A member of the RNA family "MIR2118 microRNA precursor family" from Triticum aestivum, 173 nucleotides long. The match comes from Rfam's covariance-model search (133 bits). Gene Ontology terms of the family: miRNA-mediated post-transcriptional gene silencing and RISC complex. Rfam 15.1 lists 2,377 matches to the family in 45 species.
RNA sequence: GCACGGAAGAGGAAGAAAGAGAGAGCACAAGAGCACUAGGAGUGGGAACAUGGAGGAAAGCUUACUCUUCUGUUUUCACCUCUAGUGUUGGAGGUGCAAAUAUUCAGUUUUGUGCUUUUCUGAUGUCUCCCAUUCCUAUGGUUCUUGAGCACUCUUCCCUCUUCCCUUUGGCU
Numbered sequence: 001g002c003a004c005g006g007a008a009g010a011g012g013a014a015g016a017a018a019g020a021g022a023g024a025g026c027a028c029a030a031g032a033g034c035a036c037u038a039g040g041a042g043u044g045g046g047a048a049c050a051u052g053g054a055g056g057a058a059a060g061c062u063u064a065c066u067c068u069u070c071u072g073u074u075u076u077c078a079c080c081u082c083u084a085g086u087g088u089u090g091g092a093g094g095u096g097c098a099a100a101u102a103u104u105c106a107g108u109u110u111u112g113u114g115c116u117u118u119u120c121u122g123a124u125g126u127c128u129c130c131c132a133u134u135c136c137u138a139u140g141g142u143u144c145u146u147g148a149g150c151a152c153u154c155u156u157c158c159c160u161c162u163u164c165c166c167u168u169u170g171g172c173u
Base pairs, nucleotide, nucleotide: 009164010163011162012161013160015158017156021154022153023152026149028147029146030145031144032143033142034141037138038137039136040135041134042133043132044131045130046129047128049125050124051123053121055120056119057118058117059116060115061114
Taxonomically the source falls in Triticum (Eukaryota, Streptophyta, Petrosaviidae, Poales).